[Rfam]
RNA sequence: GUAUGCCUGGCUCCCUGUAUGCUGUUUGCAGAGUCCAUCCUGAGUGUUUGAUGGUCUUCGUGGAUGGCGUGCGAGGAGCCAAGCAUAU
Numbered sequence: 001g002u003a004u005g006c007c008u009g010g011c012u013c014c015c016u017g018u019a020u021g022c023u024g025u026u027u028g029c030a031g032a033g034u035c036c037a038u039c040c041u042g043a044g045u046g047u048u049u050g051a052u053g054g055u056c057u058u059c060g061u062g063g064a065u066g067g068c069g070u071g072c073g074a075g076g077a078g079c080c081a082a083g084c085a086u087a088u
Stems, first nucleotide, its partner, number of pairs: 001088006008081007016073009027062003